[Rfam]
The record is a 100-nucleotide RNA sequence from Castanea mollissima, which matches "Small nucleolar RNA Z221/R21b" in Rfam.

RNA sequence: GGGCAGUGAUGAGGAAUAGAGAUAGUCAUGCACCACUCUGAUGAUGUUUACAUCAAUCUGUGCUGAUAAAUUUCUCACAACCCAUAUUUUAUCUGAGCUC
Numbered sequence: 001g002g003g004c005a006g007u008g009a010u011g012a013g014g015a016a017u018a019g020a021g022a023u024a025g026u027c028a029u030g031c032a033c034c035a036c037u038c039u040g041a042u043g044a045u046g047u048u049u050a051c052a053u054c055a056a057u058c059u060g061u062g063c064u065g066a067u068a069a070a071u072u073u074c075u076c077a078c079a080a081c082c083c084a085u086a087u088u089u090u091a092u093c094u095g096a097g098c099u100c
Stems, first nucleotide, its partner, number of pairs: 001100004

Its family is annotated with RNA processing and nucleolus in the Gene Ontology. The match comes from Rfam's covariance-model search (77 bits).